[Rfam]
RNA sequence: GCCAACGUCACGGGAGAAUCGACGCAAGUUGAUGCCGAAGGAGCAACCGCCCCGGAAACUCUCAGGCCCAAGGACCGCGACGCAACA
Dot-bracket structure: .....((((.(((.....((((......)))).(((((..(((...((.....))...))))).))).......))).)))).....
A member of the RNA family "Glycine riboswitch aptamer" from Sulfitobacter brevis, 87 nucleotides long. Taxonomically the source falls in Sulfitobacter (Bacteria, Pseudomonadati, Rhodobacterales, Roseobacteraceae). Rfam links the family to the GO term glycine biosynthetic process.